[Rfam]
RNA sequence: ACUGCGCCUACUUCGACGAGAGGAAAAACCGGGAAUAUCCUAUCCGGCCGGCGCAGUUUUCCACUACCAAGG
Number, nucleotide and partner (000 for none) at each position: 001a057002c056003u055004g054005c053006g052007c051008c050009u000010a000011c023012u022013u021014c020015g000016a000017c000018g000019a000020g014021a013022g012023g011024a000025a000026a000027a000028a000029c047030c046031g045032g044033g043034a000035a000036u000037a000038u071039c000040c000041u000042a000043u033044c032045c031046g030047g029048c000049c000050g008051g007052c006053g005054c004055a003056g002057u001058u000059u000060u000061c000062c000063a000064c000065u000066a000067c000068c000069a000070a000071g038072g000
int-alpA RNA: a 72-nucleotide RNA sequence from Oxalobacter vibrioformis. The family's RNA type in Rfam is small RNA. Taxonomically the source falls in Oxalobacter (Bacteria, Pseudomonadati, Betaproteobacteria, Oxalobacteraceae). Acidobacteria (1 example), Planctomycetes (1 example), Proteobacteria.